RNA sequence: GCCUGUGGAUGAUGAUUCUAUAACAUUGGGAAUCUCUCUGAAUUUCUUUGAGGAAAUGUUAUCUGACACAGGU
Numbered sequence: 001g002c003c004u005g006u007g008g009a010u011g012a013u014g015a016u017u018c019u020a021u022a023a024c025a026u027u028g029g030g031a032a033u034c035u036c037u038c039u040g041a042a043u044u045u046c047u048u049u050g051a052g053g054a055a056a057u058g059u060u061a062u063c064u065g066a067c068a069c070a071g072g073u
Base pairs, nucleotide, nucleotide: 001073002072003071004070005069006068007067